[Rfam]
RNA sequence: AAUCGUCCGAUCUACGAUCUGUUAGACCGCAGUACGACUCAAGCCAUAGGACGGGGACUUGAG
Numbered sequence: 001a002a003u004c005g006u007c008c009g010a011u012c013u014a015c016g017a018u019c020u021g022u023u024a025g026a027c028c029g030c031a032g033u034a035c036g037a038c039u040c041a042a043g044c045c046a047u048a049g050g051a052c053g054g055g056g057a058c059u060u061g062a063g
Base pairs, nucleotide, nucleotide: 004053005052006051007050008049011026012025013024014023038063039062040061041060042059043058044056045055
Dot-bracket structure: ...[[[[[..((((........))))...........((((((((...]]]]].)).))))))
Shown here is a 63-nucleotide RNA, a member of the family "Glutamine-II riboswitch aptamer".
Gene Ontology term of the family: glutamine binding.